[Rfam]
RNA sequence: UAUCCAGUAAGACUCCUGGCUAUAGUCCAGCUCUUUGCUGGAUUUAGCCAAAGUCUGUCUGUAAA
Dot-bracket structure: ......(...((((..((((((.(..(((((.....))))).).)))))).))))...)......

Rfam assigns this 65-nucleotide RNA sequence from Mesocricetus auratus to the family "mir-344 microRNA precursor family". Rfam links the family to the GO terms miRNA-mediated post-transcriptional gene silencing and RISC complex. Lineage of the source: Eukaryota > Metazoa > Eutheria > Boreoeutheria > Mesocricetus. For this family Rfam cites "Mammalian microRNAs: experimental evaluation of novel and previously annotated genes" (Chiang et al., Genes Dev, 2010). The family's consensus secondary structure was predicted with RNAalifold. A search with the family's covariance model found it, with a score of 54 bits.